[Rfam]
RNA sequence: AAUGAAGAUGCUCUCCGAGCCACAUGACCUAAAGCUGCCAAGCCAUGGUUUGCUGGCCGUCAGGGUACAUUGGGAAACCGGCGUGCCUUCCAUUGCGAAAAGGAGAGUUGACUCUCGGUAA
Numbered sequence: 001a002a003u004g005a006a007g008a009u010g011c012u013c014u015c016c017g018a019g020c021c022a023c024a025u026g027a028c029c030u031a032a033a034g035c036u037g038c039c040a041a042g043c044c045a046u047g048g049u050u051u052g053c054u055g056g057c058c059g060u061c062a063g064g065g066u067a068c069a070u071u072g073g074g075a076a077a078c079c080g081g082c083g084u085g086c087c088u089u090c091c092a093u094u095g096c097g098a099a100a101a102g103g104a105g106a107g108u109u110g111a112c113u114c115u116c117g118g119u120a121a
Stems, first nucleotide, its partner, number of pairs: 004114001011107006019057004026050004034043003063088006070081004089098002